[Rfam]
RNA sequence: GGGAUGUGAUGAGUGGUCAAAGCUCGCAUACAAAAAGGUGAGAUGGGUGUUUGCUCCGCCUGUUUUACGACAAUUAGGCGCUCUCAUCUAACCCAAUCUGAUCCU
Numbered sequence: 001g002g003g004a005u006g007u008g009a010u011g012a013g014u015g016g017u018c019a020a021a022g023c024u025c026g027c028a029u030a031c032a033a034a035a036a037g038g039u040g041a042g043a044u045g046g047g048u049g050u051u052u053g054c055u056c057c058g059c060c061u062g063u064u065u066u067a068c069g070a071c072a073a074u075u076a077g078g079c080g081c082u083c084u085c086a087u088c089u090a091a092c093c094c095a096a097u098c099u100g101a102u103c104c105u
Stems, first nucleotide, its partner, number of pairs: 001105004014096001016094001023042005045083007061076002065073001

Shown here is a 105-nucleotide RNA sequence from Salvia splendens, a member of the family "Small nucleolar RNA Z279/snoR105/snoR108". On this family, see Marker et al., Curr Biol 2002: "Experimental RNomics: identification of 140 candidates for small non-messenger RNAs in the plant Arabidopsis thaliana". By type it is a C/D-box small nucleolar RNA. About the family: This family includes the plant snoRNAs known as Z279, snoR105 and snoR108. Its family is annotated with RNA processing and nucleolus in the Gene Ontology. NCBI's taxonomy places the organism under Eukaryota, Streptophyta, asterids, Salvia subgen. Calosphace, core Calosphace.